[Rfam]
RNA sequence: UGCUGCUUGACGGGGUGCCGGUGGAACCGGCUGAGAUCACCUUGUGUCGCCUGGCGAUACCACGGUGGAUCCCGAUGAACCUGAUCCGGCUAAUACCGGCGUAGGGAUCAAGCGAAGGGUCCAC
Numbered sequence: 001u002g003c004u005g006c007u008u009g010a011c012g013g014g015g016u017g018c019c020g021g022u023g024g025a026a027c028c029g030g031c032u033g034a035g036a037u038c039a040c041c042u043u044g045u046g047u048c049g050c051c052u053g054g055c056g057a058u059a060c061c062a063c064g065g066u067g068g069a070u071c072c073c074g075a076u077g078a079a080c081c082u083g084a085u086c087c088g089g090c091u092a093a094u095a096c097c098g099g100c101g102u103a104g105g106g107a108u109c110a111a112g113c114g115a116a117g118g119g120u121c122c123a124c
Stems, first nucleotide, its partner, number of pairs: 006112005011074004016068001017031005038067004080105004086099004
RNA: TPP riboswitch aptamer (THI element)